Overview
transfer-messenger RNA: a 388-nucleotide RNA from Streptomyces sp. SID2119. The match comes from Rfam's covariance-model search (178 bits). It is annotated as a non-coding RNA gene. Its family is annotated with RNA catabolic process in the Gene Ontology. The organism belongs to Streptomyces, within Bacteria.
[Rfam]
Nucleotides: 388
Base pairs, nucleotide, nucleotide: 001384002383003382004381005380006379007378019357020356021355022354023353024352030347031346032345034343035342036341037340038339043332044331045330046329047328048069049068050067051066052065055084056083057082058081059080060079128152130150132148133147134146135145136144169205170204171203172202173201174200176196177195178194181193182192183191189215223251224250225249226248227247229245230244231243234268235267236266237265238264239263270306271305272304273303274302277301278300279299281297282296286324287323288322289321361377362376363375364374365373
Number, partner (000 for none) and nucleotide at each position: 001384g002383g003382g004381g005380a006379u007378g008000a009000u010000c011000g012000g013000u014000u015000u016000c017000g018000a019357c020356a021355g022354c023353g024352g025000a026000u027000g028000u029000c030347g031346a032345a033000g034343c035342a036341g037340g038339g039000g040000a041000a042000g043332c044331g045330a046329g047328u048069c049068g050067a051066g052065g053000a054000a055084g056083c057082g058081g059080c060079a061000a062000u063000g064000a065052u066051c067050u068049c069048g070000u071000a072000a073000a074000c075000c076000a077000u078000a079060u080059g081058u082057c083056g084055c085000a086000a087000a088000c089000a090000a091000u092000a093000a094000u095000c096000g097000c098000c099000a100000a101000u102000u103000c104000c105000a106000a107000g108000c109000g110000c111000g112000a113000u114000u115000c116000c117000u118000c119000c120000g121000c122000c123000u124000u125000c126000g127000c128152c129000c130150u131000c132148g133147c134146u135145g136144c137000c138000u139000a140000a141000u142000u143000a144136g145135c146134a147133g148132c149000u150130a151000a152128g153000c154000g155000a156000a157000g158000a159000c160000u161000c162000u163000g164000c165000g166000g167000a168000g169205u170204g171203u172202c173201a174200g175000c176196c177195c178194g179000g180000g181193g182192g183191u184000g185000a186000u187000c188000c189215c190000g191183a192182c193181c194178c195177g196176g197000a198000u199000c200174c201173u202172g203171g204170c205169a206000u207000c208000a209000a210000c211000u212000a213000g214000g215189g216000a217000u218000c219000u220000a221000a222000a223251c224250u225249u226248c227247u228000a229245a230244g231243c232000c233000c234268g235267g236266c237265c238264a239263c240000g241000g242000g243231g244230c245229u246000c247227a248226g249225a250224a251223g252000g253000a254000a255000a256000u257000c258000a259000a260000a261000c262000a263239g264238u265237g266236g267235c268234u269000g270306g271305g272304c273303c274302u275000g276000u277301c278300g279299g280000a281297g282296g283000c284000u285000u286324g287323u288322u289321c290000g291000c292000g293000u294000g295000a296282c297281c298000u299279c300278c301277g302274g303273g304272g305271c306270c307000g308000a309000g310000a311000a312000a313000a314000g315000c316000g317000u318000a319000g320000c321289g322288a323287a324286c325000u326000g327000c328047a329046c330045u331044c332043g333000g334000a335000g336000a337000a338000g339038c340037c341036c342035u343034g344000g345032u346031u347030c348000c349000g350000c351000a352024c353023c354022g355021u356020u357019g358000g359000a360000c361377g362376c363375g364374g365373g366000u367000u368000c369000g370000a371000u372000u373365c374364c375363c376362g377361c378007c379006a380005u381004c382003u383002c384001c385000a386000c387000c388000a